[Rfam]
RNA sequence: GAGAAAUGAAGAUAUGCUUAAUGUCUUACUGUUAUGUUGAAGACAUCAGAUCCAACUCUGAUCUCAUUCCUAGA
Dot-bracket structure: ((((.........................................................)))).........
RNA: Small nucleolar RNA SNORD19